RNA: Small nucleolar RNA R21
Organism: Tripterygium wilfordii
RNA sequence: CAUCCCUGUGAUGAGUCUUUUCAAUUAAAGUAGUGGCCUGAUCUCUUGUGAUGAAUUGAUAACUCUGAGGGAUG
Numbered sequence: 001c002a003u004c005c006c007u008g009u010g011a012u013g014a015g016u017c018u019u020u021u022c023a024a025u026u027a028a029a030g031u032a033g034u035g036g037c038c039u040g041a042u043c044u045c046u047u048g049u050g051a052u053g054a055a056u057u058g059a060u061a062a063c064u065c066u067g068a069g070g071g072a073u074g
Stems, first nucleotide, its partner, number of pairs: 001074006